[Rfam]
Overview
This 118-nucleotide sequence from Caballeronia glathei belongs to the Rfam family "Burkholderia sRNA Bp1_Cand684_SIPHT". On this family, see Khoo et al., BMC Genomics 2012: "Computational discovery and RT-PCR validation of novel Burkholderia conserved and Burkholderia pseudomallei unique sRNAs".
RNA sequence: AAGAAAGUGACUGCUGCCCCGCACAGGGGCGAGCUAAUAGACCAUUAAGAAAACAAGUUUCAUAGGAACCUACGUGCAUCAAACGGUGUAAAACACCCCGUCCAAGCGCCAGCGCCUA
Numbered sequence: 001a002a003g004a005a006a007g008u009g010a011c012u013g014c015u016g017c018c019c020c021g022c023a024c025a026g027g028g029g030c031g032a033g034c035u036a037a038u039a040g041a042c043c044a045u046u047a048a049g050a051a052a053a054c055a056a057g058u059u060u061c062a063u064a065g066g067a068a069c070c071u072a073c074g075u076g077c078a079u080c081a082a083a084c085g086g087u088g089u090a091a092a093a094c095a096c097c098c099c100g101u102c103c104a105a106g107c108g109c110c111a112g113c114g115c116c117u118a
Base pairs, nucleotide, nucleotide: 012078013077014076015031016030017029018028019027020026057070058068059067060066061065099108100107101106